[Rfam]
RNA sequence: GGUGUCAAAAGGCAAACCCGAUGUAAGUCGGCGACGCAAAACUAUAGGGGCCACGAUAGGUCAGCCAGUUGUCAUU
Numbered sequence: 001g002g003u004g005u006c007a008a009a010a011g012g013c014a015a016a017c018c019c020g021a022u023g024u025a026a027g028u029c030g031g032c033g034a035c036g037c038a039a040a041a042c043u044a045u046a047g048g049g050g051c052c053a054c055g056a057u058a059g060g061u062c063a064g065c066c067a068g069u070u071g072u073c074a075u076u
Stems, first nucleotide, its partner, number of pairs: 012037002018031005040070004047066002049062003

c-di-GMP-I riboswitch aptamer: a 76-nucleotide RNA sequence from Anaeroplasma bactoclasticum. The match comes from Rfam's covariance-model search (49 bits). NCBI's taxonomy places the organism under Bacteria, Bacillati, Mollicutes, Anaeroplasmataceae, Anaeroplasma. Rfam describes the family as follows. GEMM was predicted in a large-scale screen for bacterial structured RNA regulatory elements. Genes associated with GEMM are involved in a diverse array of functions, including chemotaxis regulation, signal transduction, secretion and chitin. Pairs were carried over by alignment from the consensus structure, which is taken from published work.